[Rfam]
RNA sequence: UGUCUCUUGCUUCAACAGUGUUUGGACAGACCCA
Number, nucleotide and partner (000 for none) at each position: 001u000002g032003u000004c000005u030006c029007u028008u000009g027010c000011u026012u025013c024014a023015a022016c020017a000018g000019u000020g016021u000022u015023u014024g013025g012026a011027c009028a007029g006030a005031c000032c002033c000034a000
Rfam assigns this 34-nucleotide RNA sequence from Myotis brandtii to the family "Iron response element I". By type it is a cis-regulatory element. The match comes from Rfam's covariance-model search (38 bits).